[Rfam]
RNA: Small nucleolar RNA SNORA69
RNA sequence: AAAGCAGGCUGCAAUUACAGUGCUUCACUCUGUGGGAGCACUGCCAUGUCCCUGCUGAGAGCAACUCUGUUAACUGAGGAUUUGAUCUCUGUGCUGUGAAAUCAUUUCCCUGUAACAGUGACAAGU
Numbered sequence: 001a002a003a004g005c006a007g008g009c010u011g012c013a014a015u016u017a018c019a020g021u022g023c024u025u026c027a028c029u030c031u032g033u034g035g036g037a038g039c040a041c042u043g044c045c046a047u048g049u050c051c052c053u054g055c056u057g058a059g060a061g062c063a064a065c066u067c068u069g070u071u072a073a074c075u076g077a078g079g080a081u082u083u084g085a086u087c088u089c090u091g092u093g094c095u096g097u098g099a100a101a102u103c104a105u106u107u108c109c110c111u112g113u114a115a116c117a118g119u120g121a122c123a124a125g126u
Base pairs, nucleotide, nucleotide: 003056004055005054006053007052008051018043019042020041021040022039023038024037025036026035065120067118068117069116070115071114073113074112076110083104084103085102086101088099089098